[Rfam]
RNA sequence: AUAAAGGUUAGCUCACAUGACUCACUCUAUUCUUCUACUAAGCCUACUACUUAUCGCCUUUAAUGUGCGCGGUAUGCUGGUGGAUGAAAAACAGAGUUAAGUUGACCUUCAUCAGAAAUGAAAACCCGCGCACCGCGCGGGUUUUUUU
Numbered sequence: 001a002u003a004a005a006g007g008u009u010a011g012c013u014c015a016c017a018u019g020a021c022u023c024a025c026u027c028u029a030u031u032c033u034u035c036u037a038c039u040a041a042g043c044c045u046a047c048u049a050c051u052u053a054u055c056g057c058c059u060u061u062a063a064u065g066u067g068c069g070c071g072g073u074a075u076g077c078u079g080g081u082g083g084a085u086g087a088a089a090a091a092c093a094g095a096g097u098u099a100a101g102u103u104g105a106c107c108u109u110c111a112u113c114a115g116a117a118a119u120g121a122a123a124a125c126c127c128g129c130g131c132a133c134c135g136c137g138c139g140g141g142u143u144u145u146u147u148u
Base pairs, nucleotide, nucleotide: 004109006107007106008105009104010103012101013100015098018095031087032086034084035083036082037081038080039079040078048074049073050072051071055069056068057067121145122144123143124142125141126140127139128138129137130136131135
Dot-bracket structure: ...(.(((((.((.(..(............((.(((((((.......((((...(((.........))).))))...))))))).)).......)..).)).))))).)...........(((((((((((...)))))))))))...
Leucine operon leader: a 148-nucleotide RNA sequence from Xenorhabdus japonica. For this family Rfam cites "Attenuation in amino acid biosynthetic operons" (Kolter and Yanofsky, Annu Rev Genet, 1982). Rfam's curators write: At least 6 amino acid operons are known to be regulated by attenuation. In each a leader sequence of 150-200 bp is found upstream of the first gene in the operon. This leader sequence can assume two different secondary structures known as the terminator and the anti-terminator structure. In each case the leader also codes for very short peptide sequence that is rich in the end product amino acid of the operon. The family's consensus secondary structure is taken from published work. It scores 78 bits against the family's covariance model. By type it is a cis-regulatory leader.